[Rfam]
T-box leader: a 193-nucleotide RNA from Mycoplasma sp. CAG:776.
Rfam describes the family as follows. Uncharged tRNA acts as the effector for transcription antitermination of genes in the T-box leader family. T-boxes are found upstream of many aminoacyl-tRNA synthetase genes and some amino acid biosynthetic genes usually in Gram-positive bacteria. The anticodon of a specific tRNA base pairs to a specifier sequence within the T-box motif, and the NCCA acceptor tail of the tRNA base pairs to a conserved bulge in the T-box antiterminator hairpin.
RNA sequence: UAACAAACGGGGAACAAGACGUUUAAAAGAUAAUUUUUUAUAGAGAGCUAAUGGAUGGUGAAAAUUAGUAAAAAAUCUUUUAAAAAAUCACUUGGAAGUUGAAUAUUUGAAUAAAGUAAAAUAUUCCGUAACUUUGCGUUAAAAAGAAGAGUUAUAAAAAAAGGUGGUACCGCGUUUAUAAAACGCCCUUUGG
Numbered sequence: 001u002a003a004c005a006a007a008c009g010g011g012g013a014a015c016a017a018g019a020c021g022u023u024u025a026a027a028a029g030a031u032a033a034u035u036u037u038u039u040a041u042a043g044a045g046a047g048c049u050a051a052u053g054g055a056u057g058g059u060g061a062a063a064a065u066u067a068g069u070a071a072a073a074a075a076u077c078u079u080u081u082a083a084a085a086a087a088u089c090a091c092u093u094g095g096a097a098g099u100u101g102a103a104u105a106u107u108u109g110a111a112u113a114a115a116g117u118a119a120a121a122u123a124u125u126c127c128g129u130a131a132c133u134u135u136g137c138g139u140u141a142a143a144a145a146g147a148a149g150a151g152u153u154a155u156a157a158a159a160a161a162a163g164g165u166g167g168u169a170c171c172g173c174g175u176u177u178a179u180a181a182a183a184c185g186c187c188c189u190u191u192g193g
Stems, first nucleotide, its partner, number of pairs: 007099002015094004024082006036072003047069006102125007127138003152156001161190004172186005
The source organism's lineage runs through Bacteria, Mollicutes, Mycoplasmatales, Mycoplasmataceae and Mycoplasma.